[Rfam]
RNA sequence: UUCUGUAAAACGUGGUGCUCAUGUGAAAUGGGCUGAGAGUAAGCUGUUAUUGCUUUAACACAUAUAACCUGAUUUGGGUAAUGCCAACGUAGGGAAAUAUUAGGGAAUGUUGAA
Dot-bracket structure: .....(((.(.(((..(((((.......))))).......((((.......))))...)))......((((..((((......))))..))))....).)))............
Shown here is a 114-nucleotide sequence from Clostridium sp. AM58-1XD, a member of the family "TPP riboswitch aptamer (THI element)". Rfam 15.1 lists 16,130 matches to the family in 8,693 species.